The family of this 111-nucleotide RNA sequence from Salisediminibacterium beveridgei is "pan motif". Pairs were carried over by alignment from the consensus structure, which is taken from published work. The family's RNA type in Rfam is cis-regulatory element.

RNA sequence: AGGACGGUAUCCACUUGGAACCGUACCCAUUCAGAAUCAAAACACUCAAGAAUUCUUACUAAACUACUGAUCAUCAGCCUGCCUUGAUCCGUGCUGGACAGGGACAGAAGG
Numbered sequence: 001a002g003g004a005c006g007g008u009a010u011c012c013a014c015u016u017g018g019a020a021c022c023g024u025a026c027c028c029a030u031u032c033a034g035a036a037u038c039a040a041a042a043c044a045c046u047c048a049a050g051a052a053u054u055c056u057u058a059c060u061a062a063a064c065u066a067c068u069g070a071u072c073a074u075c076a077g078c079c080u081g082c083c084u085u086g087a088u089c090c091g092u093g094c095u096g097g098a099c100a101g102g103g104a105c106a107g108a109a110g111g
Stems, first nucleotide, its partner, number of pairs: 002027002004024005010019002079107003082103005088098003